[Rfam]
RNA sequence: UUCUCGCUCAAAGAAUCGCAUUCGAAGCACACAAACAGAGAGGCCUAAUUGGUCUCUCAGCUAGAAAUGGCCAUUCUUGCUUUGGGAGAAAGUCCCCGGACACCCUUCUUUCUGAAGGAUUGCGGAAACGCGCCGCCAUAGAAGCAACACAGCGGCUUCUCUUCUACCAAUUCUCAUUCACUUUCUCCAUCCUCUUGCCGCCUGUACCACAUACGAGCCGAUCUCGGGGCCCUGGUUCUUAGCCGGACGGAUCCCAUGGAUGAAGAUACGAGUCCGGUCCUCUCGUGCAAUUUCCUUGGAACCGAGGGAUGUGAGUUUGUGCGAGGUAUUUGGAUUGUUCUUGGGGGUGACGAGAUUUUCUGGUCGUGGAGGCUAUUCGUCGAGAACGAUAGAUAUGCGAUUGCCUCUUCUGCUACGCGAGUAGUGGCAGUGGUAACUCGAUGGGGCUUAUUCUUGAUGCGAGA
Numbered sequence: 001u002u003c004u005c006g007c008u009c010a011a012a013g014a015a016u017c018g019c020a021u022u023c024g025a026a027g028c029a030c031a032c033a034a035a036c037a038g039a040g041a042g043g044c045c046u047a048a049u050u051g052g053u054c055u056c057u058c059a060g061c062u063a064g065a066a067a068u069g070g071c072c073a074u075u076c077u078u079g080c081u082u083u084g085g086g087a088g089a090a091a092g093u094c095c096c097c098g099g100a101c102a103c104c105c106u107u108c109u110u111u112c113u114g115a116a117g118g119a120u121u122g123c124g125g126a127a128a129c130g131c132g133c134c135g136c137c138a139u140a141g142a143a144g145c146a147a148c149a150c151a152g153c154g155g156c157u158u159c160u161c162u163u164c165u166a167c168c169a170a171u172u173c174u175c176a177u178u179c180a181c182u183u184u185c186u187c188c189a190u191c192c193u194c195u196u197g198c199c200g201c202c203u204g205u206a207c208c209a210c211a212u213a214c215g216a217g218c219c220g221a222u223c224u225c226g227g228g229g230c231c232c233u234g235g236u237u238c239u240u241a242g243c244c245g246g247a248c249g250g251a252u253c254c255c256a257u258g259g260a261u262g263a264a265g266a267u268a269c270g271a272g273u274c275c276g277g278u279c280c281u282c283u284c285g286u287g288c289a290a291u292u293u294c295c296u297u298g299g300a301a302c303c304g305a306g307g308g309a310u311g312u313g314a315g316u317u318u319g320u321g322c323g324a325g326g327u328a329u330u331u332g333g334a335u336u337g338u339u340c341u342u343g344g345g346g347g348u349g350a351c352g353a354g355a356u357u358u359u360c361u362g363g364u365c366g367u368g369g370a371g372g373c374u375a376u377u378c379g380u381c382g383a384g385a386a387c388g389a390u391a392g393a394u395a396u397g398c399g400a401u402u403g404c405c406u407c408u409u410c411u412g413c414u415a416c417g418c419g420a421g422u423a424g425u426g427g428c429a430g431u432g433g434u435a436a437c438u439c440g441a442u443g444g445g446g447c448u449u450a451u452u453c454u455u456g457a458u459g460c461g462a463g464a
Base pairs, nucleotide, nucleotide: 002464003463004462005461006460007459008457009456010455011454014402015401016400017399018398019397022086023084024083025082026081027080028079038058039057040056041055042054043053044052090449091448092447094446095445096444097443121132122131123130124129272374274372278370279369280368282366288362289361299357300356302354339350340349342347404433405432407430408429
RNA: RNase MRP
Organism: Diplocarpon coronariae